[Rfam]
RNA sequence: AAAGGAGCAAUAAUCAUUUUCUUGUUCUAUCAAGAGGUUGCUAUUUCUUUCUUUUUUU
Numbered sequence: 001a002a003a004g005g006a007g008c009a010a011u012a013a014u015c016a017u018u019u020u021c022u023u024g025u026u027c028u029a030u031c032a033a034g035a036g037g038u039u040g041c042u043a044u045u046u047c048u049u050u051c052u053u054u055u056u057u058u
Base pairs, nucleotide, nucleotide: 001053002052004050005049006048007047009045010044011043012042014040019036020035021034022033023032024031
RNA: Plastid-psbA-3 3UTR RNA
Organism: Nicotiana otophora